[Rfam]
RNA sequence: CGCACUACCGAGGGGUGCCCCGCCAAGGGGCUGAGAUACUGUUGGCCGGACGGCAGCACAGUGACCCUUUGAACCUGAUCCGGAUCAUGCCGGCGAAGGGACAGGUCUAACCGCCUCAC
Numbered sequence: 001c002g003c004a005c006u007a008c009c010g011a012g013g014g015g016u017g018c019c020c021c022g023c024c025a026a027g028g029g030g031c032u033g034a035g036a037u038a039c040u041g042u043u044g045g046c047c048g049g050a051c052g053g054c055a056g057c058a059c060a061g062u063g064a065c066c067c068u069u070u071g072a073a074c075c076u077g078a079u080c081c082g083g084a085u086c087a088u089g090c091c092g093g094c095g096a097a098g099g100g101a102c103a104g105g106u107c108u109a110a111c112c113g114c115c116u117c118a119c
Stems, first nucleotide, its partner, number of pairs: 007106003011068004017031005038062005074099003080093004

TPP riboswitch aptamer (THI element): a 119-nucleotide RNA sequence from Hartmannibacter diazotrophicus. Rfam describes the family as follows. Vitamin B(1) in its active form thiamin pyrophosphate (TPP) is an essential coenzyme that is synthesised by coupling of pyrimidine and thiazole moieties in bacteria. Its family is annotated with thiamine pyrophosphate binding in the Gene Ontology. A search with the family's covariance model found it, with a score of 72 bits.